A member of the RNA family "Ribosomal protein L10 leader" from Lacticaseibacillus nasuensis, 120 nucleotides long. The source organism's lineage runs through Bacteria, Bacillota, Lactobacillales, Lactobacillaceae and Lacticaseibacillus nasuensis. The literature on the family includes a 1994 paper in Prog Nucleic Acid Res Mol Biol by Zengel and Lindahl, "Diverse mechanisms for regulating ribosomal protein synthesis in Escherichia coli".
[Rfam]
RNA sequence: UGUGAGAUUUUCACUCUGCCUAAGACUCAGGUGGCGCAAGCCUUAAUAUCCUGCCGAGGUGGUAUCGGGUUUCGUAGAUACCUCUGUGUCUUGGUAGACAUGGAGUUUUUUUAUACGAAA
Numbered sequence: 001u002g003u004g005a006g007a008u009u010u011u012c013a014c015u016c017u018g019c020c021u022a023a024g025a026c027u028c029a030g031g032u033g034g035c036g037c038a039a040g041c042c043u044u045a046a047u048a049u050c051c052u053g054c055c056g057a058g059g060u061g062g063u064a065u066c067g068g069g070u071u072u073c074g075u076a077g078a079u080a081c082c083u084c085u086g087u088g089u090c091u092u093g094g095u096a097g098a099c100a101u102g103g104a105g106u107u108u109u110u111u112u113a114u115a116c117g118a119a120a
Base pairs, nucleotide, nucleotide: 028053029052030051031050033042034041035040082105083104084103085102086101087100088099089098090097091096